[Rfam]
RNA sequence: GGCCACAUAGCUCAGUCGGUAGAGCAAAGGAUUGAAAAUCCUUGUGUCCCUGGUUCGAUUCCAGGUGUGGCCA
Numbered sequence: 001g002g003c004c005a006c007a008u009a010g011c012u013c014a015g016u017c018g019g020u021a022g023a024g025c026a027a028a029g030g031a032u033u034g035a036a037a038a039u040c041c042u043u044g045u046g047u048c049c050c051u052g053g054u055u056c057g058a059u060u061c062c063a064g065g066u067g068u069g070g071c072c073a
Stems, first nucleotide, its partner, number of pairs: 001072007010025004027043005049065005
The record is a 73-nucleotide RNA sequence from Hydrogenovibrio crunogenus, which matches "tRNA" in Rfam. Taxonomically the source falls in Hydrogenovibrio (Bacteria, Pseudomonadota, Gammaproteobacteria, Thiotrichales).